Background:
A member of the RNA family "small nucleolar RNA snoR143" from Populus trichocarpa, 142 nucleotides long.

[Rfam]
RNA sequence: CUUCACUUUCUUUUCAAGAGCAGAAAAUUUUGCUUUUUGGAAGCUGGUGAGGUAAUUAGGCAGCGGCCAGACAACCGUAGGGAUGAUUCCACAGAUGACGGGCUGUUAAUCCCGCUUUGUCUACUGAUUCCAUCUCACAUUU
Numbered sequence: 001c002u003u004c005a006c007u008u009u010c011u012u013u014u015c016a017a018g019a020g021c022a023g024a025a026a027a028u029u030u031u032g033c034u035u036u037u038u039g040g041a042a043g044c045u046g047g048u049g050a051g052g053u054a055a056u057u058a059g060g061c062a063g064c065g066g067c068c069a070g071a072c073a074a075c076c077g078u079a080g081g082g083a084u085g086a087u088u089c090c091a092c093a094g095a096u097g098a099c100g101g102g103c104u105g106u107u108a109a110u111c112c113c114g115c116u117u118u119g120u121c122u123a124c125u126g127a128u129u130c131c132a133u134c135u136c137a138c139a140u141u142u
Base pairs, nucleotide, nucleotide: 002051003050004049005048006047009043013041014040015039016038017037018036019034020033021032022031080136081135082134083133084132085131098118100117101116102115103114

Record summary
The family's consensus secondary structure was predicted with RNAalifold. The source organism's lineage runs through Eukaryota, Tracheophyta, Magnoliopsida, Saliceae and Populus. Rfam classes the family as an H/ACA-box small nucleolar RNA. Rfam 15.1 lists 660 matches to the family in 212 species. Gene Ontology terms of the family: nucleolus and RNA processing. A search with the family's covariance model found it, with a score of 59 bits. For this family Rfam cites "Mining small RNA sequencing data: a new approach to identify small nucleolar RNAs in Arabidopsis" (Chen and Wu, Nucleic Acids Res, 2009).